RNA sequence: AAGUGUUACAGCUCUUUUGGAAUUUGUCUAGUAGGUUUUCCAGUUUCCACCGGAAGACCCCC
Numbered sequence: 001a002a003g004u005g006u007u008a009c010a011g012c013u014c015u016u017u018u019g020g021a022a023u024u025u026g027u028c029u030a031g032u033a034g035g036u037u038u039u040c041c042a043g044u045u046u047c048c049a050c051c052g053g054a055a056g057a058c059c060c061c062c
Stems, first nucleotide, its partner, number of pairs: 034059008043050002
Shown here is a 62-nucleotide sequence from Prolemur simus, a member of the family "U7 small nuclear RNA". About the family: Animal histone pre-mRNAs are spliced by a different mechanism than nuclear pre-mRNAs and self-splicing introns. A search with the family's covariance model found it, with a score of 68 bits.